[Rfam]
The record is a 239-nucleotide part of an RNA from Daucus carota, which matches "Archaeal large subunit ribosomal RNA" in Rfam. Gene Ontology terms of the family: structural constituent of ribosome and ribosome. Its Rfam clan is "LSU clan".
RNA sequence: CGGAUGGGGAUCGGCGAUGCGCCCCGGUCGGAUGUGGAACGGUGAAGCCGGUCUGCCGAUCGACUCGGGGUGUGGACCUGUGCGGAUUGGUGCGGCGGCCAAAGCCCGGGUUGUAGAUACGCCUGUGGAGACGCUCGCGUCAAUUGUGGUUGGCAGCACGCGCCUCUUGCGUGCCUCGGCAUCUGCGUGUGCUCUGGCACAGGCUGCGGGUUCCCCAUUCGGCCCGUCUUGAAACACGG
Number, nucleotide and partner (000 for none) at each position: 001c221002g220003g219004a218005u217006g216007g215008g214009g213010a212011u000012c000013g000014g000015c000016g000017a000018u000019g000020c000021g000022c000023c000024c000025c000026g000027g000028u000029c000030g000031g000032a000033u000034g000035u000036g000037g000038a000039a000040c000041g000042g000043u000044g000045a000046a000047g000048c000049c000050g000051g000052u000053c000054u000055g000056c000057c000058g000059a000060u000061c000062g000063a000064c000065u000066c000067g000068g000069g000070g000071u000072g000073u000074g000075g000076a000077c000078c000079u000080g000081u000082g000083c000084g000085g000086a000087u000088u000089g000090g000091u000092g000093c000094g000095g000096c000097g000098g000099c000100c000101a000102a000103a000104g000105c000106c000107c000108g000109g000110g000111u000112u000113g000114u000115a000116g000117a000118u000119a000120c000121g000122c000123c000124u000125g000126u000127g000128g000129a000130g000131a000132c000133g000134c000135u000136c000137g000138c000139g000140u000141c000142a000143a000144u000145u000146g000147u000148g000149g000150u000151u000152g000153g000154c000155a000156g000157c000158a000159c000160g000161c000162g000163c000164c000165u000166c000167u000168u000169g000170c000171g000172u000173g000174c000175c000176u000177c000178g000179g000180c000181a000182u000183c000184u000185g000186c000187g000188u000189g000190u000191g000192c000193u000194c000195u000196g000197g000198c000199a000200c000201a000202g000203g000204c000205u000206g000207c000208g000209g000210g000211u000212u010213c009214c008215c007216c006217a005218u004219u003220c002221g001222g000223c000224c239225c238226g237227u236228c000229u000230u000231g000232a000233a000234a000235c000236a227237c226238g225239g224